The family of this 123-nucleotide RNA is "FTHFS RNA".
Pairs were carried over by alignment from the consensus structure, which is taken from published work.
The family's RNA type in Rfam is cis-regulatory element.
RNA sequence: ACCGAUAAAAACAUAUCGAUUGUUUUUAUACGAUACCGUGAACCACUCCAACGGGCAGCGGUAUGACAAAACUCAUCCCGCCGGUGCCAUUCCGACGGCCCCGAGCAAAUUUUAUGGAAGGAG
Numbered sequence: 001a002c003c004g005a006u007a008a009a010a011a012c013a014u015a016u017c018g019a020u021u022g023u024u025u026u027u028a029u030a031c032g033a034u035a036c037c038g039u040g041a042a043c044c045a046c047u048c049c050a051a052c053g054g055g056c057a058g059c060g061g062u063a064u065g066a067c068a069a070a071a072c073u074c075a076u077c078c079c080g081c082c083g084g085u086g087c088c089a090u091u092c093c094g095a096c097g098g099c100c101c102c103g104a105g106c107a108a109a110u111u112u113u114a115u116g117g118a119a120g121g122a123g
Stems, first nucleotide, its partner, number of pairs: 001020001003018005033064007043054002078105001083101001